[Rfam]
RNA sequence: GGGCUGUGACACCUAGUCGUUAUGUCACCCGAAAACUGGACAUUGUUGAUCACGGAGACGGAAAUUCUGGGCGGUAGCAGAGACUUAAUUCACUAUCCUUUACAGGACGCCAUUAGCCUUGCUGACUAAUAUGAAUCAAGU
Number, nucleotide and partner (000 for none) at each position: 001g000002g000003g000004c000005u000006g028007u027008g026009a025010c024011a000012c000013c000014u000015a000016g000017u000018c000019g000020u000021u000022a000023u000024g010025u009026c008027a007028c006029c000030c000031g000032a000033a000034a000035a000036c055037u054038g053039g051040a050041c048042a047043u000044u000045g000046u000047u042048g041049a000050u040051c039052a000053c038054g037055g036056a000057g000058a000059c000060g000061g000062a000063a000064a000065u000066u081067c080068u079069g078070g000071g000072c000073g000074g000075u000076a000077g000078c069079a068080g067081a066082g000083a000084c000085u000086u138087a000088a136089u135090u134091c133092a000093c000094u000095a000096u000097c106098c105099u000100u000101u000102a000103c000104a000105g098106g097107a000108c000109g000110c000111c000112a130113u129114u128115a127116g126117c000118c000119u000120u000121g000122c000123u000124g000125a000126c116127u115128a114129a113130u112131a000132u000133g091134a090135a089136u088137c000138a086139a000140g000141u000
The record is a 141-nucleotide RNA sequence from Ferrovum sp. PN-J185, which matches "Polynucleobacter-1 RNA" in Rfam. Taxonomically the source falls in Ferrovum (Bacteria, Betaproteobacteria, Ferrovales, Ferrovaceae). Rfam classes the family as a small RNA. Pairs were carried over by alignment from the consensus structure, which is taken from published work. It scores 82 bits against the family's covariance model.